[Rfam]
RNA sequence: UCGAAGCUCCAAAAAAUGGAUAAGAAUCGGUCUUAGUGUAUAAGGGUAUUGAAAAUAGAACAAUAUAAGGAGCAAUAAAAUCUUUAUUGGUCUACCAUACUUCAAGAGAGGUUAUUGAUCCUUU
Dot-bracket structure: .......((((.....))))..............................................(((((.((((((..((..(.((((...........)))).)))..)))))).))))).